[Rfam]
RNA sequence: CUUGAAUCAGUGGGUUUAGACGUUAGAAAACUCAUAAAUUUACUGAUGUUUAUCAGCUUCUUCUCUUGAAUAUCAAUGGUAUAAAGUUAAAUGACAACACUAAAUUU
Number, nucleotide and partner (000 for none) at each position: 001c000002u000003u000004g000005a000006a000007u000008c000009a000010g000011u000012g000013g000014g000015u000016u000017u000018a000019g000020a000021c000022g000023u000024u000025a000026g000027a000028a000029a000030a000031c000032u000033c000034a000035u000036a000037a000038a000039u000040u000041u000042a101043c000044u099045g098046a000047u096048g095049u000050u000051u000052a000053u000054c000055a088056g087057c086058u085059u084060c000061u000062u081063c000064u079065c078066u000067u000068g000069a000070a000071u000072a000073u000074c000075a000076a000077u000078g065079g064080u000081a062082u000083a000084a059085a058086g057087u056088u055089a000090a000091a000092u000093g000094a000095c048096a047097a000098c045099a044100c000101u042102a000103a000104a000105u000106u000107u000
RNA: Small nucleolar RNA snoR97
Organism: Capsicum baccatum